[Rfam]
RNA sequence: GUCGGCCGGUACGGAGUUCCUUCGGUUCCGGAUCCUGAACAGCCCCCCCAGCCCCCCUGGAUCGGGGAGUUUCGACCGGCCGACGCCUAUCCCCCUCUAUGACGACGAAAUGAACCCGCGUUGCAUUCCCCUCCGGCAACGCGGGUU
Numbered sequence: 001g002u003c004g005g006c007c008g009g010u011a012c013g014g015a016g017u018u019c020c021u022u023c024g025g026u027u028c029c030g031g032a033u034c035c036u037g038a039a040c041a042g043c044c045c046c047c048c049c050a051g052c053c054c055c056c057c058u059g060g061a062u063c064g065g066g067g068a069g070u071u072u073c074g075a076c077c078g079g080c081c082g083a084c085g086c087c088u089a090u091c092c093c094c095c096u097c098u099a100u101g102a103c104g105a106c107g108a109a110a111u112g113a114a115c116c117c118g119c120g121u122u123g124c125a126u127u128c129c130c131c132u133c134c135g136g137c138a139a140c141g142c143g144g145g146u147u
Stems, first nucleotide, its partner, number of pairs: 001084010012074003020067008030056002035051003088112003093107001113147011